[Rfam]
c-di-AMP riboswitch aptamer (ydaO/yuaA leader): a 141-nucleotide RNA from Paenibacillus pini.
On this family, see Barrick et al., Proc Natl Acad Sci U S A 2004: "New RNA motifs suggest an expanded scope for riboswitches in bacterial genetic control".
Gene Ontology terms of the family: cyclic-di-AMP binding and regulation of gene expression.
Nucleotides: 141
Base pairs, nucleotide, nucleotide: 012125013124014123018034019033020032021031022030035121036120037119038118039117040116051106052105053104059084060083061082062081063080064079065078087100088099
Number, partner (000 for none) and nucleotide at each position: 001000g002000c003000u004000a005000g006000a007000u008000c009000a010000g011000g012125g013124c014123c015000a016000a017000a018034u019033u020032c021031c022030u023000u024000g025000g026000c027000a028000c029000c030022a031021g032020g033019a034018a035121g036120c037119g038118g039117g040116g041000g042000a043000u044000c045000c046000a047000c048000u049000a050000c051106g052105g053104g054000u055000g056000a057000a058000u059084u060083g061082a062081u063080c064079u065078c066000a067000u068000u069000u070000a071000u072000g073000u074000a075000u076000a077000a078065g079064a080063g081062a082061u083060c084059a085000u086000a087100g088099g089000g090000a091000a092000c093000c094000u095000u096000c097000a098000a099088c100087c101000g102000a103000a104053u105052c106051c107000u108000u109000a110000a111000g112000c113000u114000a115000a116040c117039c118038u119037c120036g121035c122000a123014g124013g125012c126000g127000u128000u129000g130000g131000a132000a133000g134000g135000g136000g137000u138000a139000u140000a141000u